RNA sequence: GAGUGCAUCUGGCUGGCAAGGUUAAUCUCGAAAGAGAGUAGCCGAAGCGAAAGCGACAUGCGCGCAUCGAUGAGAGAGGCGCGGCGUAUGAAAGUGCGCGGAGUCAGCUGGAUGCGACCCGAAGCCGGGCGAUCUAGGCGUGGGCAGGUUGAAGCGUGGCGAAAGCUGCGUGGAGGACCGCUAGCGGUGCUGAUAUGCAAAUCGCUCGCGUGACCUGCGUCUAGGGGUGAAAGUCCAAUCGAGCCCGGAAAUAGCUGGUU
Numbered sequence: 001g002a003g004u005g006c007a008u009c010u011g012g013c014u015g016g017c018a019a020g021g022u023u024a025a026u027c028u029c030g031a032a033a034g035a036g037a038g039u040a041g042c043c044g045a046a047g048c049g050a051a052a053g054c055g056a057c058a059u060g061c062g063c064g065c066a067u068c069g070a071u072g073a074g075a076g077a078g079g080c081g082c083g084g085c086g087u088a089u090g091a092a093a094g095u096g097c098g099c100g101g102a103g104u105c106a107g108c109u110g111g112a113u114g115c116g117a118c119c120c121g122a123a124g125c126c127g128g129g130c131g132a133u134c135u136a137g138g139c140g141u142g143g144g145c146a147g148g149u150u151g152a153a154g155c156g157u158g159g160c161g162a163a164a165g166c167u168g169c170g171u172g173g174a175g176g177a178c179c180g181c182u183a184g185c186g187g188u189g190c191u192g193a194u195a196u197g198c199a200a201a202u203c204g205c206u207c208g209c210g211u212g213a214c215c216u217g218c219g220u221c222u223a224g225g226g227g228u229g230a231a232a233g234u235c236c237a238a239u240c241g242a243g244c245c246c247g248g249a250a251a252u253a254g255c256u257g258g259u260u
Stems, first nucleotide, its partner, number of pairs: 005115013020043004026037004047054002060082004067075002085098004118258002121255001125248006134224011145212001147179004154171007184209004189205002192203002226236002